Overview:
Shown here is a 224-nucleotide RNA from Nakamurella flavida, a member of the family "Actinobacteria sRNA Ms_IGR-5". Rfam classes the family as a small RNA. The match comes from Rfam's covariance-model search (62 bits).
RNA sequence: ACACGGGAGAGGAGGUGGUCCAACGUUGAUGACGUCAUGGACUCGUGAGGUGACUGGCCGCUAGGCCGUCGCGCAUCACCGUCGGAGACGACACGGCCCGGAGGGGUCGCGUGAUCCGGCAGCUUGGCAAUACCGGGCAGUCACCACCCCCCUGGGCCGCCGACCCUCGUCCAGUCGGCCCGUCCGCAGCUCGCUGCGGACGGAACAGCCCAGGGGUCCUUCAU
Number, nucleotide and partner (000 for none) at each position: 001a000002c000003a000004c000005g000006g000007g000008a000009g000010a000011g000012g000013a000014g059015g058016u056017g055018g054019u053020c000021c000022a000023a000024c000025g000026u000027u000028g000029a000030u000031g000032a000033c000034g000035u000036c000037a000038u000039g000040g000041a000042c000043u000044c000045g000046u000047g000048a000049g000050g000051u000052g000053a019054c018055u017056g016057g000058c015059c014060g128061c127062u126063a125064g124065g123066c122067c000068g120069u119070c118071g117072c000073g000074c113075a112076u111077c000078a000079c000080c000081g000082u000083c000084g000085g000086a000087g000088a000089c000090g000091a000092c000093a000094c000095g000096g000097c000098c000099c000100g000101g000102a000103g000104g000105g000106g000107u000108c000109g000110c000111g076112u075113g074114a000115u000116c000117c071118g070119g069120c068121a000122g066123c065124u064125u063126g062127g061128c060129a000130a000131u000132a000133c000134c000135g000136g000137g000138c000139a000140g000141u000142c000143a000144c000145c000146a000147c000148c000149c216150c215151c214152c213153u212154g211155g210156g209157c208158c000159g179160c178161c177162g176163a175164c174165c000166c000167u000168c000169g000170u000171c000172c000173a000174g164175u163176c162177g161178g160179c159180c000181c000182g000183u000184c000185c000186g000187c000188a000189g000190c000191u000192c000193g000194c000195u000196g000197c000198g000199g000200a000201c000202g000203g000204a000205a000206c000207a000208g157209c156210c155211c154212a153213g152214g151215g150216g149217u000218c000219c000220u000221u000222c000223a000224u000